[Rfam]
RNA sequence: UUGAAAAAUAUGUAAAUAUCUCGUAUAUGUUUGAGGGAAUGGCUCAAACGUCUCUACCCAGAACCAACACUUUCUGGACUACGGGCUUAAUGAUGCGAUUG
Numbered sequence: 001u002u003g004a005a006a007a008a009u010a011u012g013u014a015a016a017u018a019u020c021u022c023g024u025a026u027a028u029g030u031u032u033g034a035g036g037g038a039a040u041g042g043c044u045c046a047a048a049c050g051u052c053u054c055u056a057c058c059c060a061g062a063a064c065c066a067a068c069a070c071u072u073u074c075u076g077g078a079c080u081a082c083g084g085g086c087u088u089a090a091u092g093a094u095g096c097g098a099u100u101g
Stems, first nucleotide, its partner, number of pairs: 018087001020085006029049007058077006
RNA: Purine riboswitch aptamer